[Rfam]
RNA sequence: AGAAUCCCGUCCAGUAGAGCUUGACCAGCAACUGGAAGCGAGUUUUGCGUGGUGCCGGGUGACCGGUCCUGCGAAGCGUAAACAGCGAAUCCGAAAGCCAUGCUAUUGAGCGUCGAAAGACCCAAUCGUGGGAGCCUUUGCCUUUUGAUGACCAAGGGCCACGUUGCUGCACUGUAUGGGUCUGGUGCAAGCAGUCCUGCCGGCGUCGGUUUGGA
Numbered sequence: 001a002g003a004a005u006c007c008c009g010u011c012c013a014g015u016a017g018a019g020c021u022u023g024a025c026c027a028g029c030a031a032c033u034g035g036a037a038g039c040g041a042g043u044u045u046u047g048c049g050u051g052g053u054g055c056c057g058g059g060u061g062a063c064c065g066g067u068c069c070u071g072c073g074a075a076g077c078g079u080a081a082a083c084a085g086c087g088a089a090u091c092c093g094a095a096a097g098c099c100a101u102g103c104u105a106u107u108g109a110g111c112g113u114c115g116a117a118a119g120a121c122c123c124a125a126u127c128g129u130g131g132g133a134g135c136c137u138u139u140g141c142c143u144u145u146u147g148a149u150g151a152c153c154a155a156g157g158g159c160c161a162c163g164u165u166g167c168u169g170c171a172c173u174g175u176a177u178g179g180g181u182c183u184g185g186u187g188c189a190a191g192c193a194g195u196c197c198u199g200c201c202g203g204c205g206u207c208g209g210u211u212u213g214g215a
Base pairs, nucleotide, nucleotide: 010036011035012034013033014032019029020028021027023182024181025180038086039085042083043082044081045080046078047077048073049072050071051070052069054067055066056065057064058063107209108207110206111205112204113203114202115201128200129199130198131197132196133195134159135158136157139154140153164194165193166192167191168190169188170187171186172185173184
RNA: Group II catalytic intron D1-D4-6